RNA sequence: UCUUCAUUUCACGUGUUCUCUCACCGGUCAGAGAGAAAGCACGUGAAAUGAAGAGA
Numbered sequence: 001u002c003u004u005c006a007u008u009u010c011a012c013g014u015g016u017u018c019u020c021u022c023a024c025c026g027g028u029c030a031g032a033g034a035g036a037a038a039g040c041a042c043g044u045g046a047a048a049u050g051a052a053g054a055g056a
Base pairs, nucleotide, nucleotide: 001054002053003052004051005050006049007048010045012043013042014041015040016039017038019036020035021034022033
RNA: mir-8364 microRNA precursor family
Organism: Pristionchus pacificus